[Rfam]
RNA: mir-957 microRNA precursor family
RNA sequence: UGGGCGUUAGUUUUGAACGGGUUUUGGUGUAUGUCGGAUUUAAUCCAAUUGAAACCGUCCAAAACUGAGGCUUGC
Numbered sequence: 001u002g003g004g005c006g007u008u009a010g011u012u013u014u015g016a017a018c019g020g021g022u023u024u025u026g027g028u029g030u031a032u033g034u035c036g037g038a039u040u041u042a043a044u045c046c047a048a049u050u051g052a053a054a055c056c057g058u059c060c061a062a063a064a065c066u067g068a069g070g071c072u073u074g075c
Stems, first nucleotide, its partner, number of pairs: 005070001007068008017058003021055008